[Rfam]
RNA sequence: GGGAGGUGUGAUAUUGUGCUUCCUGGGAGUUGUGAUACUGUGCUUCCUGGGAGGUGUGAUACCGUGCUUCCU
Numbered sequence: 001g002g003g004a005g006g007u008g009u010g011a012u013a014u015u016g017u018g019c020u021u022c023c024u025g026g027g028a029g030u031u032g033u034g035a036u037a038c039u040g041u042g043c044u045u046c047c048u049g050g051g052a053g054g055u056g057u058g059a060u061a062c063c064g065u066g067c068u069u070c071c072u
Stems, first nucleotide, its partner, number of pairs: 001071005014059005020053010031042004